[Rfam]
A member of the RNA family "Archaeal large subunit ribosomal RNA" from Staphylothermus hellenicus, 432 nucleotides of a longer RNA. The base pairs follow the family's consensus structure, which is taken from published work. The source organism's lineage runs through Archaea, Thermoproteati, Desulfurococcaceae, Staphylothermus and Staphylothermus hellenicus.
RNA sequence: GGGGGAUAACCCGGGCCAGGGAACUCGGCAAAUUGGCCCCGUAACUUCGGGAGAAGGGGUGCCCGCGGCCUGGAGGCAGAAAACCCUCUGGACCGCGGGUCGCAGUGCCUAGGGGGACCUGACUGUUUAAUAAAAACAUAGGUCCCCGCAAGCCCGAAAGGGUGUGUACGGGGGCUGAAUCCUGGCCACUGGCGGUCCGUGAAACCGGGGUACAACCCGGCUAAGCGCCGCUGAAGGCCGGGAGUAACUCUGACUCUCUUAACGGGAGAAUCCCGUUGCUAUAUAAUUUUGCUGGGCAACGGGACCUCCCGGGGGAAAGGUAGCCAAAUGCCUUGCCGGGUGAGUUCCGGCGCGCAUGAAUGGAUCAACGAGGUCCCCACUGUCCUGGCCCGGGGCCCCGCGAAUACACGGAGCCGGUGCACAGGCCGGCAA
Numbered sequence: 001g002g003g004g005g006a007u008a009a010c011c012c013g014g015g016c017c018a019g020g021g022a023a024c025u026c027g028g029c030a031a032a033u034u035g036g037c038c039c040c041g042u043a044a045c046u047u048c049g050g051g052a053g054a055a056g057g058g059g060u061g062c063c064c065g066c067g068g069c070c071u072g073g074a075g076g077c078a079g080a081a082a083a084c085c086c087u088c089u090g091g092a093c094c095g096c097g098g099g100u101c102g103c104a105g106u107g108c109c110u111a112g113g114g115g116g117a118c119c120u121g122a123c124u125g126u127u128u129a130a131u132a133a134a135a136a137c138a139u140a141g142g143u144c145c146c147c148g149c150a151a152g153c154c155c156g157a158a159a160g161g162g163u164g165u166g167u168a169c170g171g172g173g174g175c176u177g178a179a180u181c182c183u184g185g186c187c188a189c190u191g192g193c194g195g196u197c198c199g200u201g202a203a204a205c206c207g208g209g210g211u212a213c214a215a216c217c218c219g220g221c222u223a224a225g226c227g228c229c230g231c232u233g234a235a236g237g238c239c240g241g242g243a244g245u246a247a248c249u250c251u252g253a254c255u256c257u258c259u260u261a262a263c264g265g266g267a268g269a270a271u272c273c274c275g276u277u278g279c280u281a282u283a284u285a286a287u288u289u290u291g292c293u294g295g296g297c298a299a300c301g302g303g304a305c306c307u308c309c310c311g312g313g314g315g316a317a318a319g320g321u322a323g324c325c326a327a328a329u330g331c332c333u334u335g336c337c338g339g340g341u342g343a344g345u346u347c348c349g350g351c352g353c354g355c356a357u358g359a360a361u362g363g364a365u366c367a368a369c370g371a372g373g374u375c376c377c378c379a380c381u382g383u384c385c386u387g388g389c390c391c392g393g394g395g396c397c398c399c400g401c402g403a404a405u406a407c408a409c410g411g412a413g414c415c416g417g418u419g420c421a422c423a424g425g426c427c428g429g430c431a432a
Base pairs, nucleotide, nucleotide: 001399002398003397004396010394011393012392013391014390015389016388017387019385020384021383036060037059038058039057040056045050061100062099063098064097065096066095067094068093101105113378114377115376116375117374118373119372120370121369124138125137126136141176142175143174144173145172146171147170148169149166152163153162154161155160179365180364181363182362184239185238186237189236190235191232192231193230194229195228198227199226200225205220206219207218208217209216240258241257242256243255244254245253259319335351336350337349338348339347340346413430414429415428416427417426